[Rfam]
RNA sequence: CUCUUAUCGCGAGAAGCUGAGGGACUGACCCUGUGACGCUUCGGCAACCAGCAUCUCCAUGUGCGAUGCCCGGUGCCAAUUUCAGAGGAUCUCAGGAUAGAUCCGAAGAUGAGAA
Numbered sequence: 001c002u003c004u005u006a007u008c009g010c011g012a013g014a015a016g017c018u019g020a021g022g023g024a025c026u027g028a029c030c031c032u033g034u035g036a037c038g039c040u041u042c043g044g045c046a047a048c049c050a051g052c053a054u055c056u057c058c059a060u061g062u063g064c065g066a067u068g069c070c071c072g073g074u075g076c077c078a079a080u081u082u083c084a085g086a087g088g089a090u091c092u093c094a095g096g097a098u099a100g101a102u103c104c105g106a107a108g109a110u111g112a113g114a115a
Base pairs, nucleotide, nucleotide: 002114003113004112005111006110007109008108013042014041015040016039017038021031022030023029025085026084027083028082043077044076045075046074048073049072051069052068053067054066081107087104088103089102090101091100092099

This 115-nucleotide sequence from Paenalicyclobacillus mengziensis belongs to the Rfam family "SAM riboswitch aptamer (S box leader)". The SAM riboswitch is found upstream of a number of genes which code for proteins involved in methionine or cysteine biosynthesis in Gram-positive bacteria. NCBI's taxonomy places the organism under Bacteria, Bacilli, Caryophanales, Alicyclobacillaceae, Paenalicyclobacillus. Rfam links the family to the GO term regulation of gene expression.